[Rfam]
RNA sequence: CCACGCACUCACAAGCACAACCCAACUUAAAUGAAAGGUUUGGGUGUACUUGUGGAUGAAUGG
Numbered sequence: 001c002c003a004c005g006c007a008c009u010c011a012c013a014a015g016c017a018c019a020a021c022c023c024a025a026c027u028u029a030a031a032u033g034a035a036a037g038g039u040u041u042g043g044g045u046g047u048a049c050u051u052g053u054g055g056a057u058g059a060a061u062g063g
Stems, first nucleotide, its partner, number of pairs: 001063003006058002009055007017047003021043002024040004